[Rfam]
RNA sequence: ACAACGGUUCUUUUCAGAACCACAAUCGUUUCAAUCAAGAAAUUCG
Numbered sequence: 001a002c003a004a005c006g007g008u009u010c011u012u013u014u015c016a017g018a019a020c021c022a023c024a025a026u027c028g029u030u031u032c033a034a035u036c037a038a039g040a041a042a043u044u045c046g
Stems, first nucleotide, its partner, number of pairs: 006021006
Dot-bracket structure: .....((((((....)))))).........................